[Rfam]
RNA: Purine riboswitch aptamer
RNA sequence: GGCUACGAAUUUCAAAUGCCUCGUAUAACGCUGAGAAUAGGCUCGGCAGUCUCUACCAAGUGACCGGAAUCACUUGACUACGAGGACGUUACGGAUGAUA
Number, nucleotide and partner (000 for none) at each position: 001g000002g000003c000004u000005a000006c000007g000008a000009a000010u000011u000012u000013c000014a000015a000016a000017u000018g000019c085020c084021u083022c082023g081024u080025a079026u000027a000028a000029c000030g047031c046032u045033g044034a043035g042036a000037a000038u000039a000040g000041g000042c035043u034044c033045g032046g031047c030048a000049g000050u000051c000052u000053c000054u000055a000056c000057c076058a075059a074060g073061u072062g071063a070064c000065c000066g000067g000068a000069a000070u063071c062072a061073c060074u059075u058076g057077a000078c000079u025080a024081c023082g022083a021084g020085g019086a000087c000088g000089u000090u000091a000092c000093g000094g000095a000096u000097g000098a000099u000100a000